RNA sequence: UAUGCCUCUUGAAUAACCACACGGUGAAACAAAGAAAUCCUGUUUGGUUCAGACAGAGGCGCAUAUCAAGUGUCAAACCGCCGAAUUCGUUUGAGGGUAUGGAUUGCUUUCUCUGCAUCCUUACCUAGAUUUAUUCGGACAUCC
Numbered sequence: 001u002a003u004g005c006c007u008c009u010u011g012a013a014u015a016a017c018c019a020c021a022c023g024g025u026g027a028a029a030c031a032a033a034g035a036a037a038u039c040c041u042g043u044u045u046g047g048u049u050c051a052g053a054c055a056g057a058g059g060c061g062c063a064u065a066u067c068a069a070g071u072g073u074c075a076a077a078c079c080g081c082c083g084a085a086u087u088c089g090u091u092u093g094a095g096g097g098u099a100u101g102g103a104u105u106g107c108u109u110u111c112u113c114u115g116c117a118u119c120c121u122u123a124c125c126u127a128g129a130u131u132u133a134u135u136c137g138g139a140c141a142u143c144c
Base pairs, nucleotide, nucleotide: 003061004060005059006058007057009056015049016048017047018046019045021043022042024040026038082137083136084135085134086133089131091129094126095125096124098123102120105117106116107115

Small nucleolar RNA snoR138: a 144-nucleotide RNA sequence from Lupinus angustifolius. The family has 7 seed sequences and 308 matches in Rfam 15.1. Gene Ontology terms of the family: nucleolus and RNA processing. The family's consensus secondary structure was predicted with mfold. It scores 55 bits against the family's covariance model.